The family of this 97-nucleotide RNA from Pseudomonas jinjuensis is "t44 RNA". On this family, see Tjaden et al., Nucleic Acids Res 2002: "Transcriptome analysis of Escherichia coli using high-density oligonucleotide probe arrays". This family consists of a number of bacterial RNA genes of between 135 and 170 bases in length. The t44 gene has been identified in several species of enteric bacteria but homologs have also been identified in Pseudomonas and Coxiella species. The t44 gene is found between the map and rpsB genes in all species in the full alignment apart from Shigella flexneri. The organism belongs to Pseudomonas, within Bacteria. It scores 73 bits against the family's covariance model.

RNA sequence: CAUCCGGAGCACUAAACCCACACAUGCAUCGACACGAUGGCCUGGGUGCCUUCCGACUGAAUCGGGGGUUGGUCAUUGGGAUGCAUGGAGGCCCAAC
Numbered sequence: 001c002a003u004c005c006g007g008a009g010c011a012c013u014a015a016a017c018c019c020a021c022a023c024a025u026g027c028a029u030c031g032a033c034a035c036g037a038u039g040g041c042c043u044g045g046g047u048g049c050c051u052u053c054c055g056a057c058u059g060a061a062u063c064g065g066g067g068g069u070u071g072g073u074c075a076u077u078g079g080g081a082u083g084c085a086u087g088g089a090g091g092c093c094c095a096a097c
Stems, first nucleotide, its partner, number of pairs: 023087008035078008048069005